[Rfam]
Nucleotides: 073
Base pairs, nucleotide, nucleotide: 006068007067008066009065028049029048
Number, partner (000 for none) and nucleotide at each position: 001000u002000u003000g004000g005000u006068a007067u008066g009065a010000u011000g012000a013000u014000g015000a016000a017000c018000a019000u020000a021000a022000c023000a024000a025000u026000u027000a028049u029048u030000u031000u032000c033000u034000g035000a036000u037000g038000a039000u040000u041000c042000u043000u044000g045000a046000u047000u048029g049028a050000a051000u052000a053000a054000u055000a056000a057000c058000c059000u060000c061000c062000u063000a064000c065009u066008c067007a068006u069000u070000c071000u072000g073000a
This 73-nucleotide RNA sequence from Vitis vinifera belongs to the Rfam family "Small nucleolar RNA Z105". The organism belongs to Vitis, within Eukaryota. By type it is a C/D-box small nucleolar RNA. It is one of the family's seed sequences. The family has 11 seed sequences and 621 matches in Rfam 15.1. On this family, see Chen et al., Nucleic Acids Res 2003: "The high diversity of snoRNAs in plants: identification and comparative study of 120 snoRNA genes from Oryza sativa". Pairs were carried over by alignment from the consensus structure, which was predicted with CMfinder.